[Rfam]
RNA sequence: GUGGGCUACGGAGACAUGGUCCCAGUGACCAUAGGGGGCAAGAUAGUGGGCUCCCUGUGUGCAAUCGCAGGUGUGCUGACCAUUGCCCUUCCUGUACCGGUCAUUGUGUCCAAC
Numbered sequence: 001g002u003g004g005g006c007u008a009c010g011g012a013g014a015c016a017u018g019g020u021c022c023c024a025g026u027g028a029c030c031a032u033a034g035g036g037g038g039c040a041a042g043a044u045a046g047u048g049g050g051c052u053c054c055c056u057g058u059g060u061g062c063a064a065u066c067g068c069a070g071g072u073g074u075g076c077u078g079a080c081c082a083u084u085g086c087c088c089u090u091c092c093u094g095u096a097c098c099g100g101u102c103a104u105u106g107u108g109u110c111c112a113a114c
Stems, first nucleotide, its partner, number of pairs: 001114002004111002007108005013102003018097001021094001037077004050062002

The record is a 114-nucleotide sequence from Danionella cerebrum, which matches "Potassium channel RNA editing signal" in Rfam. NCBI's taxonomy places the organism under Eukaryota, Opisthokonta, Chordata, Clupeocephala, Danionella. For this family Rfam cites "Control of human potassium channel inactivation by editing of a small mRNA hairpin" (Bhalla et al., Nat Struct Mol Biol, 2004). Rfam 15.1 lists 14,095 matches to the family in 1,000 species. It scores 114 bits against the family's covariance model.